[Rfam]
RNA sequence: UUGUAAAGAAGAGGUUGCAACCGACAUUAGUAAAUCAGCCCAGUGUGAUGUAGACACGAUGAUAGUUGAUUGAAAGGGAAGGCUGCCGAAGCGCUAGGAUAAUGCAAAUCCUAGUAAGCUGGGACGUAAUUAAAGAAGUUACGGACUGUCACAGGCACAAAUAAAAGCCUGUGGGGUGCUUCCUACAAU
Numbered sequence: 001u002u003g004u005a006a007a008g009a010a011g012a013g014g015u016u017g018c019a020a021c022c023g024a025c026a027u028u029a030g031u032a033a034a035u036c037a038g039c040c041c042a043g044u045g046u047g048a049u050g051u052a053g054a055c056a057c058g059a060u061g062a063u064a065g066u067u068g069a070u071u072g073a074a075a076g077g078g079a080a081g082g083c084u085g086c087c088g089a090a091g092c093g094c095u096a097g098g099a100u101a102a103u104g105c106a107a108a109u110c111c112u113a114g115u116a117a118g119c120u121g122g123g124a125c126g127u128a129a130u131u132a133a134a135g136a137a138g139u140u141a142c143g144g145a146c147u148g149u150c151a152c153a154g155g156c157a158c159a160a161a162u163a164a165a166a167g168c169c170u171g172u173g174g175g176g177u178g179c180u181u182c183c184u185a186c187a188a189u
Base pairs, nucleotide, nucleotide: 006184008182009181010180011179017086018085019084021082022081025078033071034070035069036068037067038066039065090120091119092118093115094114095113096112097111098110099109100108121147122146125143126142127141128140129139130138131137149174150173151172152171153170154169155168
RNA: Lysine riboswitch aptamer
Organism: Philodulcilactobacillus myokonensis